Rfam assigns this 74-nucleotide RNA sequence from Puniceispirillum marinum to the family "tRNA".
Rfam classes the family as a transfer RNA.
The match comes from Rfam's covariance-model search (65 bits).
[Rfam]
RNA sequence: GCGCUCGUAGCUCAGCUGGAUAGAGCACUAGACUACGAAUCUAGGGGUCGGGAGUUCGAAUCUUCCCGAGCGCG
Numbered sequence: 001g002c003g004c005u006c007g008u009a010g011c012u013c014a015g016c017u018g019g020a021u022a023g024a025g026c027a028c029u030a031g032a033c034u035a036c037g038a039a040u041c042u043a044g045g046g047g048u049c050g051g052g053a054g055u056u057c058g059a060a061u062c063u064u065c066c067c068g069a070g071c072g073c074g
Stems, first nucleotide, its partner, number of pairs: 001073007010026004028044005050066005